RNA sequence: UCCAUCGUGAGGUGGAAUCUGAAGGAAGCCGGCGGCAAAGUCCCGACCCGAUGAACAAAAACCACAUACAAGGCUGGAUUGGGGUGGACGAGUUUGCUAAACAAAACGAAGUCCUACACUGCACGAACCCCAUCCAGUAAAUGCGGCGGGUACAUGGGAUGAAGGCUAUCGUU
Numbered sequence: 001u002c003c004a005u006c007g008u009g010a011g012g013u014g015g016a017a018u019c020u021g022a023a024g025g026a027a028g029c030c031g032g033c034g035g036c037a038a039a040g041u042c043c044c045g046a047c048c049c050g051a052u053g054a055a056c057a058a059a060a061a062c063c064a065c066a067u068a069c070a071a072g073g074c075u076g077g078a079u080u081g082g083g084g085u086g087g088a089c090g091a092g093u094u095u096g097c098u099a100a101a102c103a104a105a106a107c108g109a110a111g112u113c114c115u116a117c118a119c120u121g122c123a124c125g126a127a128c129c130c131c132a133u134c135c136a137g138u139a140a141a142u143g144c145g146g147c148g149g150g151u152a153c154a155u156g157g158g159a160u161g162a163a164g165g166c167u168a169u170c171g172u173u
Base pairs, nucleotide, nucleotide: 001016002015003014004013005012006011028173030171031170032169035166036165040160041159042158043157044156045155046151047150048149049148050147062146063145065143066142067141073138074137075136077134078133079132081130082129083128086114087113088112089111092107093106094105095104
The record is a 173-nucleotide sequence from Dethiobacter sp., which matches "Group II catalytic intron D1-D4-3" in Rfam. Taxonomically the source falls in Dethiobacter (Bacteria, Bacillati, Bacillota, Dethiobacterales).